Rfam assigns this 64-nucleotide sequence from Chondrocystis sp. NIES-4102 to the family "Cyanobacterial functional RNA 1". On this family, see Voss et al., BMC Genomics 2007: "A motif-based search in bacterial genomes identifies the ortholog of the small RNA Yfr1 in all lineages of cyanobacteria". A search with the family's covariance model found it, with a score of 58 bits. Pairs were carried over by alignment from the consensus structure, which is taken from published work. Lineage of the source: Bacteria > Cyanobacteriota > Oscillatoriophycideae > Chroococcaceae > Chondrocystis.
Nucleotides: 064
Stems, first nucleotide, its partner, number of pairs: 001020008041061007
Number, partner (000 for none) and nucleotide at each position: 001020g002019c003018g004017g005016a006015g007014a008013c009000u010000a011000a012000a013008g014007u015006u016005u017004c018003c019002g020001u021000u022000c023000a024000c025000u026000c027000c028000u029000c030000a031000c032000a033000c034000c035000a036000c037000a038000u039000u040000c041061c042060g043059c044058u045057c046056g047055a048000a049000a050000a051000u052000u053000u054000a055047u056046c057045g058044g059043g060042c061041g062000g063000u064000u